transfer-messenger RNA: a 345-nucleotide RNA sequence from [Clostridium] aminophilum. The match comes from Rfam's covariance-model search (135 bits). By type it is a non-coding RNA gene. Rfam describes the family as follows. Bacterial tmRNA, also known as 10Sa RNA or SsrA, is named for its dual tRNA and mRNA-like properties. Its role is to liberate the mRNA from a stalled ribosome. To accomplish this part of the tmRNA is used as a reading frame that ends in a translation stop signal. Lineage of the source: Bacteria > Bacillati > Bacillota > Lachnospirales > Lachnoclostridium. Clan: tRNA clan. A reference for the family is Williams (2002), "The tmRNA Website: invasion by an intron", Nucleic Acids Res.
RNA sequence: GGGGCAGUAACGGUUUCGACAGGGACUUCGAAGCUGGUGAAGCUAUCCGCAUGCAAUGCGUUAAAUGGCAAAAUUAAAAUUAAACGCUAACAGAAAUACUGUAGCUCUCGCUGCCUAAUCGCAGCGUGUGUCAGCCUUAGAGCACUCACACUUUAAGAAUCUGGCAUCGAAUAUGUGAGAAACGACGAUGAGAAGGUUCCGCAUCAUCGGGCGUAUCAGGAACUACUGAAACUCUGAGGGUGUCUAUCCCCGCGGGGCAGAGGGAAUGUCAAAGGACAGACUAUGAUAGUAGAAGAACAGGGGACAGGUUUUUGGACACGGGUUCGACCCCCGUCUGCUCCACGA
Numbered sequence: 001g002g003g004g005c006a007g008u009a010a011c012g013g014u015u016u017c018g019a020c021a022g023g024g025a026c027u028u029c030g031a032a033g034c035u036g037g038u039g040a041a042g043c044u045a046u047c048c049g050c051a052u053g054c055a056a057u058g059c060g061u062u063a064a065a066u067g068g069c070a071a072a073a074u075u076a077a078a079a080u081u082a083a084a085c086g087c088u089a090a091c092a093g094a095a096a097u098a099c100u101g102u103a104g105c106u107c108u109c110g111c112u113g114c115c116u117a118a119u120c121g122c123a124g125c126g127u128g129u130g131u132c133a134g135c136c137u138u139a140g141a142g143c144a145c146u147c148a149c150a151c152u153u154u155a156a157g158a159a160u161c162u163g164g165c166a167u168c169g170a171a172u173a174u175g176u177g178a179g180a181a182a183c184g185a186c187g188a189u190g191a192g193a194a195g196g197u198u199c200c201g202c203a204u205c206a207u208c209g210g211g212c213g214u215a216u217c218a219g220g221a222a223c224u225a226c227u228g229a230a231a232c233u234c235u236g237a238g239g240g241u242g243u244c245u246a247u248c249c250c251c252g253c254g255g256g257g258c259a260g261a262g263g264g265a266a267u268g269u270c271a272a273a274g275g276a277c278a279g280a281c282u283a284u285g286a287u288a289g290u291a292g293a294a295g296a297a298c299a300g301g302g303g304a305c306a307g308g309u310u311u312u313u314g315g316a317c318a319c320g321g322g323u324u325c326g327a328c329c330c331c332c333g334u335c336u337g338c339u340c341c342a343c344g345a
Stems, first nucleotide, its partner, number of pairs: 001341007020314009034300003038296001043289005048060005053069002107128001109126006129166006136157007145179006186209006195224006226263002232257004238251003242281004247275002318334005